The record is a 120-nucleotide RNA from Candidatus Brocadia sinica, which matches "c-di-GMP-I riboswitch aptamer" in Rfam. The family's consensus secondary structure is taken from published work. The organism belongs to Candidatus Brocadia sinica, within Bacteria.
[Rfam]
RNA sequence: AUACGAUAAAGGCAAACCCUGAGUAAUCAGGGGGCGCAAUGUAAAGGGUCUUUCAACAUACAAGGAUGUAGUUAAAGACGAUCCUUAUCCUUUAGUGAAAAAGAUAGCCUUACUGCCGAA
Number, nucleotide and partner (000 for none) at each position: 001a000002u000003a000004c000005g000006a000007u000008a000009a000010a000011g000012g037013c036014a000015a000016a000017c032018c031019c030020u029021g028022a027023g000024u000025a000026a000027u022028c021029a020030g019031g018032g017033g000034g000035c000036g013037c012038a000039a000040u000041g113042u112043a111044a000045a110046g109047g108048g105049u104050c103051u099052u098053u097054c000055a000056a000057c000058a000059u000060a000061c000062a000063a000064g000065g000066a000067u000068g000069u000070a000071g000072u000073u000074a000075a000076a000077g000078a000079c000080g000081a000082u000083c000084c000085u000086u000087a000088u000089c000090c000091u000092u000093u000094a000095g000096u000097g053098a052099a051100a000101a000102a000103g050104a049105u048106a000107g000108c047109c046110u045111u043112a042113c041114u000115g000116c000117c000118g000119a000120a000

A search with the family's covariance model found it, with a score of 57 bits.